The record is a 90-nucleotide sequence from Paecilomyces variotii, which matches "tRNA" in Rfam. Transfer RNA (tRNA) molecules are approximately 80 nucleotides in length. It scores 51 bits against the family's covariance model.
[Rfam]
RNA sequence: GGGGCGGUGGCGUAGUUGGGAGCGCGUCAGACUGAAGCUCACUUCAGCCAAGCAAUCUGAAGGUCACCGGUUCGAUCCCGGUUCACCCCA
Numbered sequence: 001g002g003g004g005c006g007g008u009g010g011c012g013u014a015g016u017u018g019g020g021a022g023c024g025c026g027u028c029a030g031a032c033u034g035a036a037g038c039u040c041a042c043u044u045c046a047g048c049c050a051a052g053c054a055a056u057c058u059g060a061a062g063g064u065c066a067c068c069g070g071u072u073c074g075a076u077c078c079c080g081g082u083u084c085a086c087c088c089c090a
Base pairs, nucleotide, nucleotide: 001089002088003087004086006084007083010025011024012023013022027060028059029058030057031056066082067081068080069079070078